Source information: The family of this 339-nucleotide sequence from Meleagris gallopavo is "7SK RNA". The family's consensus secondary structure is taken from published work. It is annotated as a non-coding RNA gene.
RNA sequence: AGAUGUGAGGGCGAUCUGGCUGCGACAUCUGUCACCCCAUUGAUCGCCAGGGUUGAUUCGGCUGAUCUGGCUGGCUAGGCGGGUGUCCCCUUCCUCCCUCACCGCUCCAUGUGCGUCCCUCCCGAAGCUGCGCGCUCGAUCAAAGAGGACGACCUUCCCCAAUAGAGACGGUACCGUUCAUCGGUCAAGGGUAUAUGGUAGCUGCACUCCCCUACUAGAAUCUCCAAACAAGCUCAAAUAAUUUGCAACUCUGUUCCUGAAGGAAAUAAAUAUUGGCAUGAGAACAGCAUGUGCCACUUACGAGGGCUGUGAAGAGAUUGUUUACACAUAACCAAAAGU
Numbered sequence: 001a002g003a004u005g006u007g008a009g010g011g012c013g014a015u016c017u018g019g020c021u022g023c024g025a026c027a028u029c030u031g032u033c034a035c036c037c038c039a040u041u042g043a044u045c046g047c048c049a050g051g052g053u054u055g056a057u058u059c060g061g062c063u064g065a066u067c068u069g070g071c072u073g074g075c076u077a078g079g080c081g082g083g084u085g086u087c088c089c090c091u092u093c094c095u096c097c098c099u100c101a102c103c104g105c106u107c108c109a110u111g112u113g114c115g116u117c118c119c120u121c122c123c124g125a126a127g128c129u130g131c132g133c134g135c136u137c138g139a140u141c142a143a144a145g146a147g148g149a150c151g152a153c154c155u156u157c158c159c160c161a162a163u164a165g166a167g168a169c170g171g172u173a174c175c176g177u178u179c180a181u182c183g184g185u186c187a188a189g190g191g192u193a194u195a196u197g198g199u200a201g202c203u204g205c206a207c208u209c210c211c212c213u214a215c216u217a218g219a220a221u222c223u224c225c226a227a228a229c230a231a232g233c234u235c236a237a238a239u240a241a242u243u244u245g246c247a248a249c250u251c252u253g254u255u256c257c258u259g260a261a262g263g264a265a266a267u268a269a270a271u272a273u274u275g276g277c278a279u280g281a282g283a284a285c286a287g288c289a290u291g292u293g294c295c296a297c298u299u300a301c302g303a304g305g306g307c308u309g310u311g312a313a314g315a316g317a318u319u320g321u322u323u324a325c326a327c328a329u330a331a332c333c334a335a336a337a338g339u
Stems, first nucleotide, its partner, number of pairs: 002107002005102007013093002018090002024087010035074002037070003042067004046062003116171002119167003123138003127135002140162001147158003202316002207314002210311001212309001215306001222304003230299003